The family of this 461-nucleotide RNA from Shigella boydii is "cspA thermoregulator". Gene Ontology terms of the family: regulation of translation and response to temperature stimulus. On this family, see Giuliodori et al., Mol Cell 2010: "The cspA mRNA is a thermosensor that modulates translation of the cold-shock protein CspA". Taxonomically the source falls in Shigella boydii (Bacteria, Gammaproteobacteria, Enterobacterales, Enterobacteriaceae). Rfam 15.1 lists 2,094 matches to the family in 1,285 species.
[Rfam]
RNA sequence: AACGAGGUACAGUUCUGUUUAUGUGUGGCAUUUUCAGUAAAGAAGUCCUGAGUAAACACGUUGAUGUUGAAUACCGCUUCUCUGCCGAGCCUUAUAUUGGUGCCUCAUGCAGUAAUGUGUCAGUUUUAUCUAUGUUAUGCCUGCGGGCGAAGAAAACAAUCUAAGGAAUUUUUCAAAUGGCAAAGAUUAAAGGUCAGGUAAAGUGGUUCAACGAGUCUAAAGGUUUUGGCUUCAUUACUCCGGCUGAUGGCAGCAAAGACGUGUUCGUACACUUCUCCGCUAUCCAGGGUAAUGGCUUCAAAACUCUGGCUGAAGGUCAGAACGUUGAGUUCGAAAUUCAGGACGGCCAGAAAGGUCCGGCAGCUGUUAACGUAACAGCUAUCUGAUCGAAUCCACUGAUCUGAAGUGUGAAUACGCUUCAAUCUCGCUAUAAAGCCUCGUCGAAUGCGAGGCUUUUUACU
Numbered sequence: 001a002a003c004g005a006g007g008u009a010c011a012g013u014u015c016u017g018u019u020u021a022u023g024u025g026u027g028g029c030a031u032u033u034u035c036a037g038u039a040a041a042g043a044a045g046u047c048c049u050g051a052g053u054a055a056a057c058a059c060g061u062u063g064a065u066g067u068u069g070a071a072u073a074c075c076g077c078u079u080c081u082c083u084g085c086c087g088a089g090c091c092u093u094a095u096a097u098u099g100g101u102g103c104c105u106c107a108u109g110c111a112g113u114a115a116u117g118u119g120u121c122a123g124u125u126u127u128a129u130c131u132a133u134g135u136u137a138u139g140c141c142u143g144c145g146g147g148c149g150a151a152g153a154a155a156a157c158a159a160u161c162u163a164a165g166g167a168a169u170u171u172u173u174c175a176a177a178u179g180g181c182a183a184a185g186a187u188u189a190a191a192g193g194u195c196a197g198g199u200a201a202a203g204u205g206g207u208u209c210a211a212c213g214a215g216u217c218u219a220a221a222g223g224u225u226u227u228g229g230c231u232u233c234a235u236u237a238c239u240c241c242g243g244c245u246g247a248u249g250g251c252a253g254c255a256a257a258g259a260c261g262u263g264u265u266c267g268u269a270c271a272c273u274u275c276u277c278c279g280c281u282a283u284c285c286a287g288g289g290u291a292a293u294g295g296c297u298u299c300a301a302a303a304c305u306c307u308g309g310c311u312g313a314a315g316g317u318c319a320g321a322a323c324g325u326u327g328a329g330u331u332c333g334a335a336a337u338u339c340a341g342g343a344c345g346g347c348c349a350g351a352a353a354g355g356u357c358c359g360g361c362a363g364c365u366g367u368u369a370a371c372g373u374a375a376c377a378g379c380u381a382u383c384u385g386a387u388c389g390a391a392u393c394c395a396c397u398g399a400u401c402u403g404a405a406g407u408g409u410g411a412a413u414a415c416g417c418u419u420c421a422a423u424c425u426c427g428c429u430a431u432a433a434a435g436c437c438u439c440g441u442c443g444a445a446u447g448c449g450a451g452g453c454u455u456u457u458u459a460c461u
Stems, first nucleotide, its partner, number of pairs: 001014003004010001022242002027239002030236001041232001044231004048223001054218001056216002059213006066207003079166003084161001087126004139148003174193001178189003246338003258266002271325002274322001276321002279318001280316002284309005293302001344359003360382001362380007385424003389420003430458001432456010